[Rfam]
RNA sequence: CCCACACCCCUGUGUGUAGGAUCUUAAAGGAUCACCAUUAAAUUUGACACAGAUCUAUAGAAAAGUCAUCACAUGGAUGUGAAACUUGAUUUUUCUAGAGAUAUGUGUCAAAUUUAAUGGUGAUCCUUUGGGGUCCUACACACAUGGGUGUGGG
Numbered sequence: 001c002c003c004a005c006a007c008c009c010c011u012g013u014g015u016g017u018a019g020g021a022u023c024u025u026a027a028a029g030g031a032u033c034a035c036c037a038u039u040a041a042a043u044u045u046g047a048c049a050c051a052g053a054u055c056u057a058u059a060g061a062a063a064a065g066u067c068a069u070c071a072c073a074u075g076g077a078u079g080u081g082a083a084a085c086u087u088g089a090u091u092u093u094u095c096u097a098g099a100g101a102u103a104u105g106u107g108u109c110a111a112a113u114u115u116a117a118u119g120g121u122g123a124u125c126c127u128u129u130g131g132g133g134u135c136c137u138a139c140a141c142a143c144a145u146g147g148g149u150g151u152g153g154g
Stems, first nucleotide, its partner, number of pairs: 002153008011144003015140014030125003034121018053102004058097011069082005